[Rfam]
RNA sequence: UUCUCAAAUGAUAGCACUACUGCAAACCCUAGCGGGACAGUAGUGCUUGAAAAUACCUGAGAA
Numbered sequence: 001u002u003c004u005c006a007a008a009u010g011a012u013a014g015c016a017c018u019a020c021u022g023c024a025a026a027c028c029c030u031a032g033c034g035g036g037a038c039a040g041u042a043g044u045g046c047u048u049g050a051a052a053a054u055a056c057c058u059g060a061g062a063a
Base pairs, nucleotide, nucleotide: 001063002062003061013047014046015045016044017043018042019041020040021039022038027036028035029034
RNA: Selenocysteine insertion sequence 1